Betaproteobacteria toxic small RNA: a 65-nucleotide RNA from Chitinimonas arctica. About the family: Overexpression in amino aid rich medium attenuates growth, suggesting role in repressing amino acid intake and metabolism. Lineage of the source: Bacteria > Betaproteobacteria > Neisseriales > Chitinibacteraceae > Chitinimonas. The base pairs follow the family's consensus structure, which was predicted with WAR. A reference for the family is Kimelman et al. (2012), "A vast collection of microbial genes that are toxic to bacteria", Genome Res. The family has 51 seed sequences and 951 matches in Rfam 15.1. A search with the family's covariance model found it, with a score of 52 bits.
RNA sequence: UGUCUCCUCCAUCCUCCUUUUUUGGUGGAAUUACGCGCAAGCCCAGAUGGCUUGCGCUUUUUUUU
Numbered sequence: 001u002g003u004c005u006c007c008u009c010c011a012u013c014c015u016c017c018u019u020u021u022u023u024g025g026u027g028g029a030a031u032u033a034c035g036c037g038c039a040a041g042c043c044c045a046g047a048u049g050g051c052u053u054g055c056g057c058u059u060u061u062u063u064u065u
Base pairs, nucleotide, nucleotide: 008029009028010027011026012025013024035057036056037055038054039053040052041051